Small nucleolar RNA SNORD58: a 70-nucleotide RNA sequence from Scleropages formosus. For this family Rfam cites "Purified box C/D snoRNPs are able to reproduce site-specific 2'-O-methylation of target RNA in vitro" (Galardi et al., Mol Cell Biol, 2002). The family's consensus secondary structure was predicted with PFOLD. It is annotated as a C/D-box small nucleolar RNA. From the family's description: snoRNA U58 is found in introns 1, 3 and 6 of the ribosomal protein RPL17 gene in humans. The organism belongs to Scleropages, within Eukaryota. Its family is annotated with RNA processing and nucleolus in the Gene Ontology.
RNA sequence: AUGCCAUGAUGACAUUCUUAGGACACCUUUGGAGGUUUAGGCCUGUGAAAUUAAGCUUUGUCUGAGCAUG
Dot-bracket structure: ((((.............................................................)))).
Numbered sequence: 001a002u003g004c005c006a007u008g009a010u011g012a013c014a015u016u017c018u019u020a021g022g023a024c025a026c027c028u029u030u031g032g033a034g035g036u037u038u039a040g041g042c043c044u045g046u047g048a049a050a051u052u053a054a055g056c057u058u059u060g061u062c063u064g065a066g067c068a069u070g
Stems, first nucleotide, its partner, number of pairs: 001069004